[Rfam]
RNA: Small nucleolar RNA SNORD2
Organism: Gouania willdenowi
RNA sequence: CUGUGACAUGAUGGCAUACCAUCUUUCGGGACUGACCUUAACACGUGGAGAGUUCCUUUUAUUUGCUGAUCACAG
Numbered sequence: 001c002u003g004u005g006a007c008a009u010g011a012u013g014g015c016a017u018a019c020c021a022u023c024u025u026u027c028g029g030g031a032c033u034g035a036c037c038u039u040a041a042c043a044c045g046u047g048g049a050g051a052g053u054u055c056c057u058u059u060u061a062u063u064u065g066c067u068g069a070u071c072a073c074a075g
Base pairs, nucleotide, nucleotide: 001075002074003073004072005071006070